[Rfam]
RNA sequence: CUUCCUGUUUUAGUACCACCCACCUGCUUCCUCACAAGGUGUGUGGCUAUGCUAACAGGAUAAAGCAACUGUCUGCCAAUGUCUGAAGCGGUGGAUGGUCACAUCCCCUCCACCUCUAUAUGAAUUGGCAGUACAUCUAUAU
Numbered sequence: 001c002u003u004c005c006u007g008u009u010u011u012a013g014u015a016c017c018a019c020c021c022a023c024c025u026g027c028u029u030c031c032u033c034a035c036a037a038g039g040u041g042u043g044u045g046g047c048u049a050u051g052c053u054a055a056c057a058g059g060a061u062a063a064a065g066c067a068a069c070u071g072u073c074u075g076c077c078a079a080u081g082u083c084u085g086a087a088g089c090g091g092u093g094g095a096u097g098g099u100c101a102c103a104u105c106c107c108c109u110c111c112a113c114c115u116c117u118a119u120a121u122g123a124a125u126u127g128g129c130a131g132u133a134c135a136u137c138u139a140u141a142u
Base pairs, nucleotide, nucleotide: 004059005058006057007056016046017045018044019043075129076128077127078126093117094116095115
The family of this 142-nucleotide RNA sequence from Anabarilius grahami is "Small nucleolar RNA SNORA29". Clan: SNORA20 clan. It scores 66 bits against the family's covariance model. The family's RNA type in Rfam is H/ACA-box small nucleolar RNA. ACA29 is a member of the H/ACA class of snoRNA that guide the sites of modification of uridines to pseudouridines.